[Rfam]
Nucleotides: 067
Base pairs, nucleotide, nucleotide: 001018002017003016004015006014007013008012027047029046030045031044032043033042034041035040
Number, partner (000 for none) and nucleotide at each position: 001018g002017g003016g004015g005000a006014c007013c008012u009000u010000c011000g012008g013007g014006g015004c016003c017002c018001u019000a020000c021000a022000c023000a024000u025000a026000a027047g028000u029046a030045g031044g032043c033042g034041g035040g036000g037000c038000a039000a040035c041034c042033c043032g044031u045030c046029u047027c048000a049000a050000g051000c052000u053000a054000a055000c056000g057000g058000a059000a060000g061000a062000c063000a064000g065000a066000a067000a